[Rfam]
RNA sequence: AUUCAUCGUUUGGGGUGGCGCACAGCGUCUGAGAUAAUACCCAUUGAACCUGAUCCGGAUAAUACUGGCGAAGGGAAGAGCGGACAAGAAAAUAG
Numbered sequence: 001a002u003u004c005a006u007c008g009u010u011u012g013g014g015g016u017g018g019c020g021c022a023c024a025g026c027g028u029c030u031g032a033g034a035u036a037a038u039a040c041c042c043a044u045u046g047a048a049c050c051u052g053a054u055c056c057g058g059a060u061a062a063u064a065c066u067g068g069c070g071a072a073g074g075g076a077a078g079a080g081c082g083g084a085c086a087a088g089a090a091a092a093u094a095g
Stems, first nucleotide, its partner, number of pairs: 006083005011043004016037001017029005049074003055068004
A member of the RNA family "TPP riboswitch aptamer (THI element)" from Desulfobacter postgatei, 95 nucleotides long. Taxonomically the source falls in Desulfobacter postgatei (Bacteria, Desulfobacteria, Desulfobacterales, Desulfobacteraceae). Pairs were carried over by alignment from the consensus structure, which is taken from published work. A search with the family's covariance model found it, with a score of 68 bits.